Shown here is a 69-nucleotide sequence from Daphnia galeata, a member of the family "mir-2 microRNA precursor family".
It scores 63 bits against the family's covariance model.
NCBI's taxonomy places the organism under Eukaryota, Metazoa, Panarthropoda, Arthropoda, Daphnia.
Rfam links the family to the GO terms miRNA-mediated post-transcriptional gene silencing and RISC complex.
[Rfam]
RNA sequence: UAGCUUGUCAGAGUGGUUGUGAUGUGCGUCAUGUUGUACUCGUAUCACAGCCAGCUUUGAUGAGCGCUA
Numbered sequence: 001u002a003g004c005u006u007g008u009c010a011g012a013g014u015g016g017u018u019g020u021g022a023u024g025u026g027c028g029u030c031a032u033g034u035u036g037u038a039c040u041c042g043u044a045u046c047a048c049a050g051c052c053a054g055c056u057u058u059g060a061u062g063a064g065c066g067c068u069a
Stems, first nucleotide, its partner, number of pairs: 005063009014053009025044003